A member of the RNA family "mir-988 microRNA precursor family" from Anopheles gambiae, 82 nucleotides long. Taxonomically the source falls in gambiae species complex (Eukaryota, Mandibulata, Pterygota, Endopterygota).
Nucleotides: 082
Base pairs, nucleotide, nucleotide: 002081003080004079005078006077007076009074010073011072012071013070014069016067018065019064020063021062022061023060024059025058026057027056029054031052032051033050
Number, partner (000 for none) and nucleotide at each position: 001000a002081c003080a004079u005078u006077g007076c008000c009074g010073g011072u012071g013070u014069g015000u016067g017000u018065u019064u020063u021062g022061u023060g024059a025058c026057a027056a028000u029054g030000a031052g032051a033050u034000u035000u036000a037000a038000u039000a040000g041000u042000u043000u044000a045000a046000g047000u048000u049000c050033a051032u052031c053000c054029c055000c056027u057026u058025g059024u060023u061022g062021c063020a064019a065018a066000c067016c068000u069014c070013a071012c072011g073010c074009u075000g076007g077006c078005g079004g080003u081002g082000u
The literature on the family includes a 2010 paper in BMC Genomics by Skalsky et al., "Identification of microRNAs expressed in two mosquito vectors, Aedes albopictus and Culex quinquefasciatus". The sequence is in the family's curated seed alignment.